[Rfam]
RNA sequence: GGCCAGAGGGAAAGAAAAAAUAUCACUUAAAACAUAUAGUAUAGGCAAGCAGAGAGCUGGAACGACUCGCAGUUAAUCCUGGCC
Numbered sequence: 001g002g003c004c005a006g007a008g009g010g011a012a013a014g015a016a017a018a019a020a021u022a023u024c025a026c027u028u029a030a031a032a033c034a035u036a037u038a039g040u041a042u043a044g045g046c047a048a049g050c051a052g053a054g055a056g057c058u059g060g061a062a063c064g065a066c067u068c069g070c071a072g073u074u075a076a077u078c079c080u081g082g083c084c
Stems, first nucleotide, its partner, number of pairs: 001084006008077001
A member of the RNA family "HIV gag stem loop 3 (GSL3)" from Lentivirus humimdef1, 84 nucleotides long. It is annotated as a cis-regulatory element. Rfam's curators put it in the seed alignment. This family consists of several HIV gag stem loop 3 (GSL3) sequences. GSL3 is known to direct specific packaging of HIV-1 genomic RNA. Deletion of GSL3 leads to decreases in both viral RNA packaging and dimerisation.